[Rfam]
Nucleotides: 054
Stems, first nucleotide, its partner, number of pairs: 001054008010029007032046005
Number, partner (000 for none) and nucleotide at each position: 001054c002053g003052g004051u005050u006049g007048g008047g009000a010029g011028g012027g013026c014025u015024g016023c017000a018000a019000g020000u021000c022000u023016g024015c025014g026013g027012u028011c029010c030000g031000u032046u033045g034044a035043g036042u037000g038000u039000c040000u041000a042036a043035c044034u045033c046032a047008c048007c049006c050005g051004g052003c053002u054001g
The record is a 54-nucleotide RNA sequence, which matches "DUF3800-VI RNA" in Rfam. The family's consensus secondary structure is taken from published work. Rfam's curators put it in the seed alignment. It is annotated as a cis-regulatory element.